[Rfam]
Nucleotides: 271
Stems, first nucleotide, its partner, number of pairs: 002014003018269002021266002028260002032256002035253002042249002045246001046243004052237003067232002070229002073226001075224004080216005085210003089205009099143001101141003105138003110133002113131005119126002144148001152196007162189001164187003171180003
Number, partner (000 for none) and nucleotide at each position: 001000u002014a003013c004012c005000u006000g007000u008000a009000a010000c011000g012004g013003g014002u015000c016000c017000a018269a019268a020000u021266u022265u023000c024000a025000g026000a027000a028260g029259a030000u031000a032256g033255g034000c035253c036252g037000u038000a039000a040000u041000c042249u043248c044000a045246c046243a047242u048241g049240c050000g051000c052237c053236u054235c055000c056000c057000a058000a059000g060000c061000a062000u063000c064000u065000u066000a067232c068231u069000c070229u071228a072000a073226u074000a075224g076223g077222a078221g079000c080216c081215c082214a083213g084212u085210u086209c087208g088000a089205g090204u091203c092202c093201g094200g095199u096198g097197g098000u099143g100000g101141u102140c103139g104000u105138u106137u107136u108000c109000u110133c111132a112000c113131u114130c115129g116128c117127u118000u119126g120125g121000g122000u123000a124000a125120c126119c127117a128116g129115c130114g131113a132111u133110g134000c135000u136107g137106a138105g139103c140102g141101g142000c143099c144148c145000u146000a147000a148144g149000c150000a151000a152196u153195g154194a155193a156192u157191a158190c159000a160000a161000u162189c163000a164187g165186a166185c167000g168000a169000g170000g171180g172179a173178a174000g175000c176000a177000a178173u179172u180171c181000u182000g183000c184000a185166g186165u187164c188000g189162g190158g191157u192156a193155u194154u195153c196152a197097c198096c199095a200094u201093u202092g203091g204090a205089c206000g207000g208087c209086g210085g211000c212084g213083c214082u215081g216080g217000a218000u219000u220000a221078c222077u223076c224075u225000a226073a227000c228071u229070a230000g231068g232067g233000u234000u235054g236053g237052g238000a239000a240049g241048u242047g243046u244000g245000a246045g247000c248043g249042a250000g251000g252036u253035g254000g255033c256032u257000g258000u259029u260028c261000c262000a263000c264000u265022g266021a267000u268019u269018u270000u271000u